[Rfam]
RNA: Small nucleolar RNA Z247
Nucleotides: 138
Base pairs, nucleotide, nucleotide: 004137005136006135008133087107088106089105090104091103092102
Number, partner (000 for none) and nucleotide at each position: 001000c002000u003000g004137u005136u006135u007000c008133a009000g010000a011000a012000c013000a014000a015000a016000a017000u018000c019000a020000c021000a022000u023000u024000c025000u026000u027000u028000a029000c030000a031000u032000c033000c034000u035000u036000g037000c038000u039000g040000g041000u042000c043000u044000u045000g046000g047000g048000a049000g050000u051000g052000a053000g054000u055000a056000u057000a058000a059000c060000c061000c062000a063000g064000u065000u066000g067000u068000g069000g070000u071000u072000g073000c074000u075000g076000u077000u078000a079000c080000u081000u082000c083000a084000a085000g086000a087107a088106u089105u090104g091103a092102g093000c094000c095000a096000u097000a098000c099000u100000c101000u102092c103091u104090c105089a106088a107087u108000g109000a110000a111000g112000u113000c114000u115000a116000u117000g118000c119000a120000a121000u122000g123000u124000u125000a126000c127000u128000g129000a130000g131000u132000c133008u134000u135006g136005a137004g138000u